U7 small nuclear RNA: a 61-nucleotide sequence from Callithrix jacchus. It scores 67 bits against the family's covariance model. The family's consensus secondary structure was predicted with PFOLD.
RNA sequence: AAAUGUUACAGCUCUUUUAGAAUUUGUCUAGCAGGCUUCCGGUUUUUGCCAGAAAGCCCCU
Numbered sequence: 001a002a003a004u005g006u007u008a009c010a011g012c013u014c015u016u017u018u019a020g021a022a023u024u025u026g027u028c029u030a031g032c033a034g035g036c037u038u039c040c041g042g043u044u045u046u047u048g049c050c051a052g053a054a055a056g057c058c059c060c061u
Stems, first nucleotide, its partner, number of pairs: 034058005039052001041050003